[Rfam]
RNA sequence: AAGAAUGUUACGGGAGAGAACGUAUCGAUACGUCACCGAAGGGGCAAAUCAUUGAAGAAUGAUGAAUCUCUCAGGUAAAAGGACCGUUACAGGAUA
Numbered sequence: 001a002a003g004a005a006u007g008u009u010a011c012g013g014g015a016g017a018g019a020a021c022g023u024a025u026c027g028a029u030a031c032g033u034c035a036c037c038g039a040a041g042g043g044g045c046a047a048a049u050c051a052u053u054g055a056a057g058a059a060u061g062a063u064g065a066a067u068c069u070c071u072c073a074g075g076u077a078a079a080a081g082g083a084c085c086g087u088u089a090c091a092g093g094a095u096a
Stems, first nucleotide, its partner, number of pairs: 006091003010087004020033004035076003038072002042070003048063006

Description:
Shown here is a 96-nucleotide RNA sequence from Aquibacillus halophilus, a member of the family "Glycine riboswitch aptamer".